[Rfam]
RNA sequence: UUAUAAAUUUAGCAAACUAAUUGAAAGAUUAGGACGCAAAGCUAUGGGUCUAAGGAUAUCAUAAUAUCAACGAUUGCCAGGUUACAGAA
Numbered sequence: 001u002u003a004u005a006a007a008u009u010u011a012g013c014a015a016a017c018u019a020a021u022u023g024a025a026a027g028a029u030u031a032g033g034a035c036g037c038a039a040a041g042c043u044a045u046g047g048g049u050c051u052a053a054g055g056a057u058a059u060c061a062u063a064a065u066a067u068c069a070a071c072g073a074u075u076g077c078c079a080g081g082u083u084a085c086a087g088a089a
Stems, first nucleotide, its partner, number of pairs: 012037002017032006040083004045079003048074003055068004

c-di-GMP-I riboswitch aptamer: an 89-nucleotide RNA sequence from Lachnoclostridium phytofermentans. It is one of the family's seed sequences. Pairs were carried over by alignment from the consensus structure, which is taken from published work.